[Rfam]
A member of the RNA family "Leucine operon leader", 118 nucleotides long. It is annotated as a cis-regulatory leader. At least 6 amino acid operons are known to be regulated by attenuation. In each a leader sequence of 150-200 bp is found upstream of the first gene in the operon. For this family Rfam cites "Attenuation in amino acid biosynthetic operons" (Kolter and Yanofsky, Annu Rev Genet, 1982).
RNA sequence: UAAAGCCGGGCACCACCAUUUUUAAAUGUCCGCUAGUGCGCACUAGCGGACAUUUAAAAAUGGUGGUGCCCGGCUUUAUGCAAAUGAAGCCCGGGAUUUGAAUUUCCCGGGCUUCAUU
Numbered sequence: 001u002a003a004a005g006c007c008g009g010g011c012a013c014c015a016c017c018a019u020u021u022u023u024a025a026a027u028g029u030c031c032g033c034u035a036g037u038g039c040g041c042a043c044u045a046g047c048g049g050a051c052a053u054u055u056a057a058a059a060a061u062g063g064u065g066g067u068g069c070c071c072g073g074c075u076u077u078a079u080g081c082a083a084a085u086g087a088a089g090c091c092c093g094g095g096a097u098u099u100g101a102a103u104u105u106c107c108c109g110g111g112c113u114u115c116a117u118u
Base pairs, nucleotide, nucleotide: 004075006073007072008071009070010069012067013066014065015064016063017062018061026053027052028051029050030049031048032047033046034045035044036043037042086115087114088113089112090111091110092109093108094107095106096105
Gene Ontology term of the family: leucine biosynthetic process.